[Rfam]
RNA sequence: UGGCAACAGUGAUGACAGGAGUUGUAACUGGAUGUAAUGUCCAUUACUGCAUGGAGACAACAGUCCCUCUAAACUGACGUUGCCA
Numbered sequence: 001u002g003g004c005a006a007c008a009g010u011g012a013u014g015a016c017a018g019g020a021g022u023u024g025u026a027a028c029u030g031g032a033u034g035u036a037a038u039g040u041c042c043a044u045u046a047c048u049g050c051a052u053g054g055a056g057a058c059a060a061c062a063g064u065c066c067c068u069c070u071a072a073a074c075u076g077a078c079g080u081u082g083c084c085a
Base pairs, nucleotide, nucleotide: 001085002084003083004082005081006080007079
Shown here is an 85-nucleotide RNA from Hypocryptadius cinnamomeus, a member of the family "Small nucleolar RNA SNORD127". It scores 79 bits against the family's covariance model. Rfam classes the family as a C/D-box small nucleolar RNA. The base pairs follow the family's consensus structure, which was predicted with WAR.